[Rfam]
Nucleotides: 230
Stems, first nucleotide, its partner, number of pairs: 001230001003228012016215007023207007031199003037193003042187006050178013066164002069161002074155001080147004087142006093132011107117002
Number, partner (000 for none) and nucleotide at each position: 001230u002000a003228g004227c005226u006225a007224c008223a009222a010221a011220a012219u013218a014217a015000c016215u017214u018213a019212u020211u021210c022209u023207g024206u025205a026204g027203c028202u029201a030000g031199u032198u033197u034000g035000a036000g037193u038192u039191a040000c041000g042187a043186u044185a045184a046183u047182u048000a049000u050178u051177a052176u053175g054174u055173u056172a057171a058170u059169u060168u061167a062166c063000a064000u065000a066164a067163u068000u069161a070160u071000a072000g073000u074155a075000a076000c077000u078000u079000c080147u081146u082145a083144c084000u085000a086000a087142g088141u089140g090139g091138u092137u093132u094131a095130c096129u097128a098127u099126a100125a101124c102123g103122u104000u105000a106000u107117g108116g109000u110000a111000a112000a113000u114000a115000u116108c117107c118000c119000c120000a121000u122103g123102u124101g125100u126099u127098a128097u129096a130095g131094u132093a133000a134000c135000u136000c137092a138091a139090c140089u141088a142087u143000c144083g145082u146081a147080a148000a149000u150000a151000u152000g153000u154000a155074u156000u157000g158000a159000c160070a161069u162000u163067a164066u165000c166062g167061u168060a169059a170058a171057u172056u173055a174054a175053u176052a177051u178050a179000u180000a181000a182047a183046a184045u185044u186043a187042u188000a189000a190000a191039u192038a193037a194000a195000u196000g197033g198032a199031g200000g201029u202028g203027g204026u205025u206024a207023c208000g209022a210021g211020a212019a213018u214017a215016a216000c217014u218013u219012a220011u221010u222009u223008u224007g225006u226005a227004g228003u229000c230001g